This 221-nucleotide RNA sequence from Rhodococcus sp. PBTS 1 belongs to the Rfam family "Actinobacteria sRNA Ms_IGR-5". The pairing is the family consensus, mapped onto this sequence. NCBI's taxonomy places the organism under Bacteria, Actinomycetota, Mycobacteriales, Nocardiaceae, Rhodococcus. A search with the family's covariance model found it, with a score of 140 bits. By type it is a small RNA. For this family Rfam cites "Identification of small RNAs in Mycobacterium smegmatis using heterologous Hfq" (Li et al., RNA, 2013).

RNA sequence: ACACGAGAGAGGAGGUGGUUCGAAGUUGUAUGACUUAUGGACACGUGAGGUGGCUGCCCGCUAGCCGCACCCGCUGACGGUAUUCACCGGAAUCUCCGCGCGAGCGGCGGGCGAAUACCAGGUAGCUACCCGGCCCCCGAGCCCUCGGUCCGUCCAGACCGAGACCCGGUGCGCGUCUUCUCGCAAGAUGCCCACCCGGUACGGCUCGGGGGCCGCUUCCU
Numbered sequence: 001a002c003a004c005g006a007g008a009g010a011g012g013a014g015g016u017g018g019u020u021c022g023a024a025g026u027u028g029u030a031u032g033a034c035u036u037a038u039g040g041a042c043a044c045g046u047g048a049g050g051u052g053g054c055u056g057c058c059c060g061c062u063a064g065c066c067g068c069a070c071c072c073g074c075u076g077a078c079g080g081u082a083u084u085c086a087c088c089g090g091a092a093u094c095u096c097c098g099c100g101c102g103a104g105c106g107g108c109g110g111g112c113g114a115a116u117a118c119c120a121g122g123u124a125g126c127u128a129c130c131c132g133g134c135c136c137c138c139g140a141g142c143c144c145u146c147g148g149u150c151c152g153u154c155c156a157g158a159c160c161g162a163g164a165c166c167c168g169g170u171g172c173g174c175g176u177c178u179u180c181u182c183g184c185a186a187g188a189u190g191c192c193c194a195c196c197c198g199g200u201a202c203g204g205c206u207c208g209g210g211g212g213c214c215g216c217u218u219c220c221u
Stems, first nucleotide, its partner, number of pairs: 014058006059113004064108002067105002070102001072100003131215013144163006